[Rfam]
RNA: Bacterial small signal recognition particle RNA
Organism: Sinorhizobium medicae
RNA sequence: GGGAGGUUGGUGGUGGACGAGCCACUCGCCAACCGGGUCAGGUCCGGAAGGAAGCAGCCCUAACGAGCCCCGGCACGGGUCACCGUGCCAGCCUCCCACCU
Numbered sequence: 001g002g003g004a005g006g007u008u009g010g011u012g013g014u015g016g017a018c019g020a021g022c023c024a025c026u027c028g029c030c031a032a033c034c035g036g037g038u039c040a041g042g043u044c045c046g047g048a049a050g051g052a053a054g055c056a057g058c059c060c061u062a063a064c065g066a067g068c069c070c071c072g073g074c075a076c077g078g079g080u081c082a083c084c085g086u087g088c089c090a091g092c093c094u095c096c097c098a099c100c101u
Base pairs, nucleotide, nucleotide: 004094005093006092007091008090010086011085012084013083014082015081018077019076021074022073023072025067026066027065028064035060036059037058038057043052044051045050